RNA sequence: CCUCCCGUUCUUGGCGGGCCCCGGCGGCUCCGUGCCUGGGCCCGGUGUGUGCGGAGGUAGAACAGCGACCGGCGCAAAGUCUUCGGUGCCGGCGGCCGCAUCCGCCGGUCCUACCCUCAGGUGCCGGGACACAG
Numbered sequence: 001c002c003u004c005c006c007g008u009u010c011u012u013g014g015c016g017g018g019c020c021c022c023g024g025c026g027g028c029u030c031c032g033u034g035c036c037u038g039g040g041c042c043c044g045g046u047g048u049g050u051g052c053g054g055a056g057g058u059a060g061a062a063c064a065g066c067g068a069c070c071g072g073c074g075c076a077a078a079g080u081c082u083u084c085g086g087u088g089c090c091g092g093c094g095g096c097c098g099c100a101u102c103c104g105c106c107g108g109u110c111c112u113a114c115c116c117u118c119a120g121g122u123g124c125c126g127g128g129a130c131a132c133a134g
Base pairs, nucleotide, nucleotide: 001057002056003055004054005053015044016043017042018041019040020039023036024035025034070126071125072124073123074122075121089108090107091106092105093104094103095102
The record is a 134-nucleotide RNA sequence from Pampusana beccarii, which matches "Small nucleolar RNA SNORA57" in Rfam. The family's RNA type in Rfam is H/ACA-box small nucleolar RNA. From the family's description: U99 belongs to the H/ACA class of snoRNAs which are thought to guide the sites of modification of uridines to pseudouridines, the target for this family is unknown. Gene Ontology terms of the family: RNA processing and nucleolus. On this family, see Vitali et al., Nucleic Acids Res 2003: "Identification of 13 novel human modification guide RNAs". A search with the family's covariance model found it, with a score of 97 bits. The family has 26 seed sequences and 1,736 matches in Rfam 15.1.